The record is a 114-nucleotide RNA from Cebus imitator, which matches "Mitochondrial DNA control region secondary structure A" in Rfam.
By type it is an antisense RNA.
The source organism's lineage runs through Eukaryota, Tetrapoda, Theria, Cebidae and Cebus.
RNA sequence: GAAUUUCCUCUAGAUGCAUUUUAACUAUUAUGUUAGUAUUAAUGAGUUACCACUAAUACAUUAGUGCCUUUAUGUACUUCGUGCAUUACUGCUAGUCCCCAUGAAUAAUACAUA
Numbered sequence: 001g002a003a004u005u006u007c008c009u010c011u012a013g014a015u016g017c018a019u020u021u022u023a024a025c026u027a028u029u030a031u032g033u034u035a036g037u038a039u040u041a042a043u044g045a046g047u048u049a050c051c052a053c054u055a056a057u058a059c060a061u062u063a064g065u066g067c068c069u070u071u072a073u074g075u076a077c078u079u080c081g082u083g084c085a086u087u088a089c090u091g092c093u094a095g096u097c098c099c100c101a102u103g104a105a106u107a108a109u110a111c112a113u114a
Base pairs, nucleotide, nucleotide: 005105006104007103009101013096016092017091018090022035023034024033025032026030036067037066040063041062042061043060044059072086073085074084075083076082

The literature on the family includes a 2008 paper in Mol Biol Evol by Pereira et al., "Evidence for variable selective pressures at a large secondary structure of the human mitochondrial DNA control region".